[Rfam]
RNA sequence: UGGCGCCCAAACGCGGGGCUUGGAUACGAGGGAACUAUGUGAGGAAGAGGGCGCAUAGAAAGGCCGGCGACUAAAGUGAAAGAAAAAUCCCUCUGACCGUCGCGGGAGCCAGCUGCGUUGGAGUUGAGGGUAAGUUACGCGCCUGAAAUGGGACAAGAAUUAAGCCAGCAUCAAAUCUACGUAGGACAAUUAAAAGAGGCUUUAAAGACACGGGGAGUAAAGGUUAAAAGUGGUGACUUAUUUAGAUUUUUUGAUUUUGUGAAAGAUACCUGCCCUU
Numbered sequence: 001u002g003g004c005g006c007c008c009a010a011a012c013g014c015g016g017g018g019c020u021u022g023g024a025u026a027c028g029a030g031g032g033a034a035c036u037a038u039g040u041g042a043g044g045a046a047g048a049g050g051g052c053g054c055a056u057a058g059a060a061a062g063g064c065c066g067g068c069g070a071c072u073a074a075a076g077u078g079a080a081a082g083a084a085a086a087a088u089c090c091c092u093c094u095g096a097c098c099g100u101c102g103c104g105g106g107a108g109c110c111a112g113c114u115g116c117g118u119u120g121g122a123g124u125u126g127a128g129g130g131u132a133a134g135u136u137a138c139g140c141g142c143c144u145g146a147a148a149u150g151g152g153a154c155a156a157g158a159a160u161u162a163a164g165c166c167a168g169c170a171u172c173a174a175a176u177c178u179a180c181g182u183a184g185g186a187c188a189a190u191u192a193a194a195a196g197a198g199g200c201u202u203u204a205a206a207g208a209c210a211c212g213g214g215g216a217g218u219a220a221a222g223g224u225u226a227a228a229a230g231u232g233g234u235g236a237c238u239u240a241u242u243u244a245g246a247u248u249u250u251u252u253g254a255u256u257u258u259g260u261g262a263a264a265g266a267u268a269c270c271u272g273c274c275c276u277u
Base pairs, nucleotide, nucleotide: 006032007031008030013027015025038050040048089130090129091128092127097121098120101117102116103115104114105113139154142152143151144150145149161204162203163202164200165199166198211253212252213251214250215249216248217247218246221239222238223237224236225235226234262277263276265274267272
A member of the RNA family "Mason-Pfizer monkey virus packaging signal" from Rhinopithecus roxellana, 277 nucleotides long. Lineage of the source: Eukaryota > Theria > Cercopithecoidea > Colobinae > Rhinopithecus. It is annotated as a cis-regulatory element.